[Rfam]
The record is a 109-nucleotide RNA from Conexibacter woesei, which matches "SAM riboswitch aptamer (S box leader)" in Rfam. Its family is annotated with regulation of gene expression in the Gene Ontology. A search with the family's covariance model found it, with a score of 84 bits.
RNA sequence: UACGCAUCCAGAGGGGUGGAGGGUUAUGGCCCGACGAAGCCCCGGCAACCCCCCGUAAGGGGAAGGUGCCAAUUCCAUCAGGCAAAGCAACAAGCCUGGGAGAUGUGGU
Numbered sequence: 001u002a003c004g005c006a007u008c009c010a011g012a013g014g015g016g017u018g019g020a021g022g023g024u025u026a027u028g029g030c031c032c033g034a035c036g037a038a039g040c041c042c043c044g045g046c047a048a049c050c051c052c053c054c055g056u057a058a059g060g061g062g063a064a065g066g067u068g069c070c071a072a073u074u075c076c077a078u079c080a081g082g083c084a085a086a087g088c089a090a091c092a093a094g095c096c097u098g099g100g101a102g103a104u105g106u107g108g109u
Stems, first nucleotide, its partner, number of pairs: 003107006013043005021032003026078004044070004049066002051062004074101001079098005